Rfam assigns this 157-nucleotide RNA sequence from Natronospirillum operosum to the family "Molybdenum/Tungsten riboswitch aptamer (Moco RNA motif)". The match comes from Rfam's covariance-model search (62 bits).
RNA sequence: UGCGUAUCGAAGCUCCGAGCCAGGGGCGCCUGUACCGCCAGUUCUCUGGCGGAUGGACCUCUGGCCUCAUGCCAACCGUUGCGGUGGGCGUGACAGGGUGCAGGGUGGAAACGCUCGCGCCUCCCGACACUUGGAAAGGGGUUCAAUCAUGUUUGCC
Numbered sequence: 001u002g003c004g005u006a007u008c009g010a011a012g013c014u015c016c017g018a019g020c021c022a023g024g025g026g027c028g029c030c031u032g033u034a035c036c037g038c039c040a041g042u043u044c045u046c047u048g049g050c051g052g053a054u055g056g057a058c059c060u061c062u063g064g065c066c067u068c069a070u071g072c073c074a075a076c077c078g079u080u081g082c083g084g085u086g087g088g089c090g091u092g093a094c095a096g097g098g099u100g101c102a103g104g105g106u107g108g109a110a111a112c113g114c115u116c117g118c119g120c121c122u123c124c125c126g127a128c129a130c131u132u133g134g135a136a137a138g139g140g141g142u143u144c145a146a147u148c149a150u151g152u153u154u155g156c157c
Base pairs, nucleotide, nucleotide: 003151004150011143012142013141014140015139016138019065020064021063022062023061024060025059026058029056030055035052036051037050038049039048040047041046067093068092069091070090071089072088073087096122097121098120099119100118101117103116104115105114106113107112123134124133